[Rfam]
Nucleotides: 063
Base pairs, nucleotide, nucleotide: 034060035059036058037056038055039054040053041052042051044049
Number, partner (000 for none) and nucleotide at each position: 001000a002000u003000g004000u005000g006000u007000u008000a009000g010000a011000a012000c013000u014000c015000u016000u017000u018000u019000a020000a021000a022000a023000u024000u025000u026000g027000u028000c029000u030000a031000g032000c033000a034060g035059g036058u037056u038055u039054u040053c041052u042051g043000a044049u045000u046000u047000u048000u049044a050000c051042u052041g053040g054039a055038a056037a057000a058036a059035u060034c061000c062000c063000c

A member of the RNA family "U7 small nuclear RNA" from Carlito syrichta, 63 nucleotides long. Rfam 15.1 lists 10,439 matches to the family in 569 species. A search with the family's covariance model found it, with a score of 53 bits.